[Rfam]
This 118-nucleotide sequence from Salegentibacter mishustinae belongs to the Rfam family "Group II catalytic intron D1-D4-2". A search with the family's covariance model found it, with a score of 93 bits. From the family's description: Group II introns are found in rRNA, tRNA and mRNA of organelles in fungi, plants and protists, and also in mRNA in bacteria.
Nucleotides: 118
Stems, first nucleotide, its partner, number of pairs: 001015005016040006023033003045117001047092006053081002056078003060074004097114006
Number, partner (000 for none) and nucleotide at each position: 001015g002014g003013u004012g005011g006000u007000a008000g009000a010000c011005c012004c013003a014002c015001c016040g017039u018038a019037g020036g021035g022000g023033u024032u025031g026000a027000c028000a029000g030000a031025c032024a033023g034000a035021c036020c037019c038018u039017a040016c041000a042000a043000a044000c045117c046000a047092c048091c049090u050089u051088g052087u053081g054080g055000u056078g057077c058076u059000u060074u061073a062072u063071u064000u065000c066000g067000a068000a069000a070000g071063a072062a073061u074060g075000a076058g077057g078056u079000g080054c081053u082000g083000a084000g085000c086000g087052a088051c089050a090049a091048g092047g093000a094000a095000a096000a097114g098113g099112c100111g101110a102109g103000a104000g105000a106000a107000u108000a109102c110101u111100c112099g113098u114097c115000a116000g117045g118000u